[Rfam]
RNA sequence: CUCCCCGAAAUAUAUUUAGGUAUAGCCUCGAGUGAUGUUUAACGGGGGUAGAGCGCUGAUUGGGCUAGGGGUCUUACCAGACUACCAAACCCACUCAAACUGCGAAUACCGUUACAAUUAACUCGGGAGACAGACGGCGGGAGAGAAGUUCCGUCGUCGAGAGGGAAAGAGCCCAGACCAUCAGCUAAGGUCCCAAAGAUUACACUAAGUGGAAAACGAUGUGAGAAUGCAAAGACAGCCAGGAUGUUGGCUUAGAAGCAGCCACCAUUUAAAGAAAGCGUAACAGCUCACUGGUCAAGUGUUCUUGCGCGGAAGAUAUAACGGGGCUCAAGUGUAACACCGAAGCUAUGGACCUAACGAAAGUUAGAGUGGUAGGGGAGCAUUGUAGAAACCACAGAAGGUGUACGGCGACGUAUGCUGGAGGAACUACAAGAGCAGAU
Numbered sequence: 001c002u003c004c005c006c007g008a009a010a011u012a013u014a015u016u017u018a019g020g021u022a023u024a025g026c027c028u029c030g031a032g033u034g035a036u037g038u039u040u041a042a043c044g045g046g047g048g049u050a051g052a053g054c055g056c057u058g059a060u061u062g063g064g065c066u067a068g069g070g071g072u073c074u075u076a077c078c079a080g081a082c083u084a085c086c087a088a089a090c091c092c093a094c095u096c097a098a099a100c101u102g103c104g105a106a107u108a109c110c111g112u113u114a115c116a117a118u119u120a121a122c123u124c125g126g127g128a129g130a131c132a133g134a135c136g137g138c139g140g141g142a143g144a145g146a147a148g149u150u151c152c153g154u155c156g157u158c159g160a161g162a163g164g165g166a167a168a169g170a171g172c173c174c175a176g177a178c179c180a181u182c183a184g185c186u187a188a189g190g191u192c193c194c195a196a197a198g199a200u201u202a203c204a205c206u207a208a209g210u211g212g213a214a215a216a217c218g219a220u221g222u223g224a225g226a227a228u229g230c231a232a233a234g235a236c237a238g239c240c241a242g243g244a245u246g247u248u249g250g251c252u253u254a255g256a257a258g259c260a261g262c263c264a265c266c267a268u269u270u271a272a273a274g275a276a277a278g279c280g281u282a283a284c285a286g287c288u289c290a291c292u293g294g295u296c297a298a299g300u301g302u303u304c305u306u307g308c309g310c311g312g313a314a315g316a317u318a319u320a321a322c323g324g325g326g327c328u329c330a331a332g333u334g335u336a337a338c339a340c341c342g343a344a345g346c347u348a349u350g351g352a353c354c355u356a357a358c359g360a361a362a363g364u365u366a367g368a369g370u371g372g373u374a375g376g377g378g379a380g381c382a383u384u385g386u387a388g389a390a391a392c393c394a395c396a397g398a399a400g401g402u403g404u405a406c407g408g409c410g411a412c413g414u415a416u417g418c419u420g421g422a423g424g425a426a427c428u429a430c431a432a433g434a435g436c437a438g439a440u
Stems, first nucleotide, its partner, number of pairs: 001380006011024005026129001027127007036120001038116001040114006051103001052101002057097003061093004068086002070083005133158010163174003178351004183347003189341003198338001200337006217311002221308010238295005244268003249263003269273001274289001278287002352370002354367005381435001383432006392424002400419008